[Rfam]
RNA sequence: CUGAGGUGCAGGACUUAGCCAGCUUUGUGAACAGAUCUGUGAAAGCCCAUGUUCACAGUGGCUAAGUUCCGCUCCUCAG
Number, nucleotide and partner (000 for none) at each position: 001c000002u000003g000004a000005g000006g000007u000008g000009c000010a000011g069012g068013a067014c066015u065016u064017a063018g062019c061020c060021a000022g000023c000024u000025u000026u000027g056028u055029g054030a053031a052032c051033a050034g000035a000036u000037c000038u000039g000040u000041g000042a000043a000044a000045g000046c000047c000048c000049a000050u033051g032052u031053u030054c029055a028056c027057a000058g000059u000060g020061g019062c018063u017064a016065a015066g014067u013068u012069c011070c000071g000072c000073u000074c000075c000076u000077c000078a000079g000
A member of the RNA family "mir-27 microRNA precursor family" from Oncorhynchus kisutch, 79 nucleotides long. Rfam 15.1 lists 1,440 matches to the family in 645 species.